[Rfam]
RNA sequence: GGAUGUGAGGGCGAUCUGGUGCGACAAUCUGUCACCCCAUGAUCGCUAGGGUUGAUUCGGCUGAUCUGGUUGGCUAGGCGGGUGUUCCCCUUCCCCCUCACCGCUCCAUGUAAGUCCUCCGAAGCUGCGCGCUUCGGUAGAAGAGGAUGGCUCUCCCGGUAGACAAGCACCGAUCUUCGGUCCGGGUAAACGAGUAGCUGCUCCCCUGCUAGAACCUCCAAACAAGAUUCCAAGGUCCCUAGGAGAAACGUAGGGUAGUCAAGCUCCAAGUCCCAGGCACAUCCAAAUACGGCGCUGCACGUGGCAGUCUGCCCUUUCUU
Numbered sequence: 001g002g003a004u005g006u007g008a009g010g011g012c013g014a015u016c017u018g019g020u021g022c023g024a025c026a027a028u029c030u031g032u033c034a035c036c037c038c039a040u041g042a043u044c045g046c047u048a049g050g051g052u053u054g055a056u057u058c059g060g061c062u063g064a065u066c067u068g069g070u071u072g073g074c075u076a077g078g079c080g081g082g083u084g085u086u087c088c089c090c091u092u093c094c095c096c097c098u099c100a101c102c103g104c105u106c107c108a109u110g111u112a113a114g115u116c117c118u119c120c121g122a123a124g125c126u127g128c129g130c131g132c133u134u135c136g137g138u139a140g141a142a143g144a145g146g147a148u149g150g151c152u153c154u155c156c157c158g159g160u161a162g163a164c165a166a167g168c169a170c171c172g173a174u175c176u177u178c179g180g181u182c183c184g185g186g187u188a189a190a191c192g193a194g195u196a197g198c199u200g201c202u203c204c205c206c207u208g209c210u211a212g213a214a215c216c217u218c219c220a221a222a223c224a225a226g227a228u229u230c231c232a233a234g235g236u237c238c239c240u241a242g243g244a245g246a247a248a249c250g251u252a253g254g255g256u257a258g259u260c261a262a263g264c265u266c267c268a269a270g271u272c273c274c275a276g277g278c279a280c281a282u283c284c285a286a287a288u289a290c291g292g293c294g295c296u297g298c299a300c301g302u303g304g305c306a307g308u309c310u311g312c313c314c315u316u317u318c319u320u
Stems, first nucleotide, its partner, number of pairs: 001107003005101007013092002018089002023086003027083007035073002037069003041066004045061003116167001118162001119137004124132002138159001140157001145156003197264003201258002204255006216245004222240001285320002289315001291313003294308005

Shown here is a 320-nucleotide RNA sequence from Hymenochirus boettgeri, a member of the family "7SK RNA". A search with the family's covariance model found it, with a score of 250 bits. Clan: 7SK clan. Taxonomically the source falls in Hymenochirus (Eukaryota, Bilateria, Deuterostomia, Pipidae).